mir-9242 microRNA precursor family: a 64-nucleotide sequence from Cnephaeus nilssonii.
Its family is annotated with miRNA-mediated post-transcriptional gene silencing and RISC complex in the Gene Ontology.
It scores 62 bits against the family's covariance model.
[Rfam]
RNA sequence: GGCCUCCCACUGUGGGGCGAUCGAUCUGGGGGCCCCGUUAUCGAUUGCCCCACAGAGGAAGGCC
Numbered sequence: 001g002g003c004c005u006c007c008c009a010c011u012g013u014g015g016g017g018c019g020a021u022c023g024a025u026c027u028g029g030g031g032g033c034c035c036c037g038u039u040a041u042c043g044a045u046u047g048c049c050c051c052a053c054a055g056a057g058g059a060a061g062g063c064c
Stems, first nucleotide, its partner, number of pairs: 001064005007058002010055016029036002